[Rfam]
Nucleotides: 120
Base pairs, nucleotide, nucleotide: 030116033083034082035081036080037079038078039077040076041075042074046060047059048058049057050056063071064070086106088105089104090103091102092101093100094099
Number, partner (000 for none) and nucleotide at each position: 001000c002000g003000c004000c005000a006000u007000g008000a009000a010000a011000c012000a013000g014000a015000u016000u017000a018000u019000u020000c021000u022000a023000g024000u025000a026000g027000u028000g029000c030116g031000a032000a033083c034082g035081c036080g037079u038078a039077u040076g041075g042074g043000g044000c045000a046060a047059a048058u049057g050056g051000u052000a053000u054000a055000a056050c057049c058048a059047u060046u061000c062000g063071g064070c065000u066000a067000a068000u069000a070064g071063c072000c073000a074042c075041u076040c077039a078038u079037a080036c081035g082034c083033g084000a085000a086106a087000c088105a089104g090103g091102c092101u093100c094099c095000c096000u097000c098000g099094g100093g101092g102091g103090c104089c105088u106086u107000u108000u109000u110000u111000a112000u113000u114000a115000c116030c117000u118000u119000a120000u
The record is a 120-nucleotide sequence from Ditibartonella apis, which matches "Rhizobiales sRNA Atu_C8" in Rfam. The source organism's lineage runs through Bacteria, Alphaproteobacteria, Hyphomicrobiales, Bartonellaceae and Ditibartonella. A reference for the family is Wilms et al. (2012), "Deep sequencing uncovers numerous small RNAs on all four replicons of the plant pathogen Agrobacterium tumefaciens", RNA Biol. Rfam classes the family as a small RNA.